[Rfam]
RNA: MIR7502 microRNA precursor family
Organism: Gossypium arboreum
Nucleotides: 143
Stems, first nucleotide, its partner, number of pairs: 003141006009133006016126008026116002029113003
Number, partner (000 for none) and nucleotide at each position: 001000u002000a003141u004140u005139a006138a007137a008136g009133u010132u011131u012130a013129u014128u015000u016126a017125u018124u019123u020122u021121u022120a023119c024000u025000a026116u027115u028000g029113a030112a031111a032000a033000c034000u035000g036000a037000c038000a039000u040000a041000a042000c043000u044000g045000a046000a047000a048000a049000a050000a051000u052000a053000a054000c055000u056000a057000a058000a059000u060000a061000g062000u063000g064000a065000c066000u067000u068000g069000u070000a071000a072000u073000g074000u075000g076000u077000c078000a079000c080000g081000u082000g083000u084000a085000u086000c087000u088000c089000a090000u091000g092000u093000u094000a095000a096000a097000a098000u099000a100000c101000a102000g103000a104000g105000a106000c107000u108000a109000a110000u111031u112030u113029u114000a115027a116026a117000u118000u119023g120022u121021a122020a123019a124018a125017a126016u127000g128014g129013a130012u131011a132010a133009a134000a135000c136008u137007u138006u139005u140004a141003a142000c143000a